Shown here is a 104-nucleotide RNA from Secundilactobacillus similis, a member of the family "TPP riboswitch aptamer (THI element)". Rfam links the family to the GO term thiamine pyrophosphate binding. NCBI's taxonomy places the organism under Bacteria, Bacillota, Lactobacillales, Secundilactobacillus, Secundilactobacillus similis. It scores 67 bits against the family's covariance model.
[Rfam]
RNA sequence: AAACAACACGAGGGGUGUCCCGCUACCGGGGCUGAGAUGUGCUUGGCAUGAUCCCUUUGAACCUGUAAGUUCAUACUUGCGUAGGAACGUGUUCAUCGACGGCC
Numbered sequence: 001a002a003a004c005a006a007c008a009c010g011a012g013g014g015g016u017g018u019c020c021c022g023c024u025a026c027c028g029g030g031g032c033u034g035a036g037a038u039g040u041g042c043u044u045g046g047c048a049u050g051a052u053c054c055c056u057u058u059g060a061a062c063c064u065g066u067a068a069g070u071u072c073a074u075a076c077u078u079g080c081g082u083a084g085g086a087a088c089g090u091g092u093u094c095a096u097c098g099a100c101g102g103c104c
Stems, first nucleotide, its partner, number of pairs: 006092005011056004016050001017032005039049004062085004066079004